[Rfam]
RNA sequence: UAGUUUAUACUUUCGGUUCUCUAGCUUUAUGAUAUUGGAUAAACUCAUACAGCUAGAUAACCAAAGAGAAAAACUA
Numbered sequence: 001u002a003g004u005u006u007a008u009a010c011u012u013u014c015g016g017u018u019c020u021c022u023a024g025c026u027u028u029a030u031g032a033u034a035u036u037g038g039a040u041a042a043a044c045u046c047a048u049a050c051a052g053c054u055a056g057a058u059a060a061c062c063a064a065a066g067a068g069a070a071a072a073a074c075u076a
Stems, first nucleotide, its partner, number of pairs: 001076005008069001011066003015062004020057007028049005
Annotation: mir-9/mir-79 microRNA precursor family: a 76-nucleotide RNA sequence from Clupea harengus. Rfam links the family to the GO terms miRNA-mediated post-transcriptional gene silencing and RISC complex. A search with the family's covariance model found it, with a score of 60 bits. The family's consensus secondary structure was predicted with RNAalifold. A reference for the family is Lagos-Quintana et al. (2001), "Identification of novel genes coding for small expressed RNAs", Science. NCBI's taxonomy places the organism under Eukaryota, Eumetazoa, Neopterygii, Clupeinae, Clupea.